[Rfam]
RNA sequence: GGUAUUGUUUACCCCACACAUGAGCCCCGGAAACUCAUCGUAACCGUAAACAACUA
Numbered sequence: 001g002g003u004a005u006u007g008u009u010u011a012c013c014c015c016a017c018a019c020a021u022g023a024g025c026c027c028c029g030g031a032a033a034c035u036c037a038u039c040g041u042a043a044c045c046g047u048a049a050a051c052a053a054c055u056a
Base pairs, nucleotide, nucleotide: 006052007051008050009049010048011047012046020038021037022036023035024034